[Rfam]
RNA sequence: GUAUGAGUGAAUUCUGUGUUACUCUGCCAGUAGUAAAUAUAGUCAGACACCAUCCAAAAGAAUCCUUUCAUUCCUCCUUUCCUAAGGUGAGUGCUGUCCUGUACGUACUCAGCGGAGAAUUGAAUACAACG
Dot-bracket structure: (.(((........((((((.................))))))........))).)...........(((((((.((.........(.(((((((..........))))))).))).)))).))).......
Small nucleolar RNA SNORA15: a 131-nucleotide RNA sequence from Oncorhynchus mykiss. On this family, see Huttenhofer et al., EMBO J 2001: "RNomics: an experimental approach that identifies 201 candidates for novel, small, non-messenger RNAs in mouse". Rfam classes the family as an H/ACA-box small nucleolar RNA. Rfam links the family to the GO terms nucleolus and RNA processing.